Rfam assigns this 76-nucleotide RNA sequence from Oncorhynchus tshawytscha to the family "Small nucleolar RNA SNORD121A". The organism belongs to Oncorhynchus, within Eukaryota. On this family, see Yang et al., Nucleic Acids Res 2006: "snoSeeker: an advanced computational package for screening of guide and orphan snoRNA genes in the human genome". It scores 48 bits against the family's covariance model.
[Rfam]
RNA sequence: ACCUGGAGAUAAUGAUGGUUACAAGCACAUAUCUGAUUAUUAUGUGGAAUACCUCUAUGACUGAAUCUCCUAUGGU
Numbered sequence: 001a002c003c004u005g006g007a008g009a010u011a012a013u014g015a016u017g018g019u020u021a022c023a024a025g026c027a028c029a030u031a032u033c034u035g036a037u038u039a040u041u042a043u044g045u046g047g048a049a050u051a052c053c054u055c056u057a058u059g060a061c062u063g064a065a066u067c068u069c070c071u072a073u074g075g076u
Stems, first nucleotide, its partner, number of pairs: 001076003005070001007068004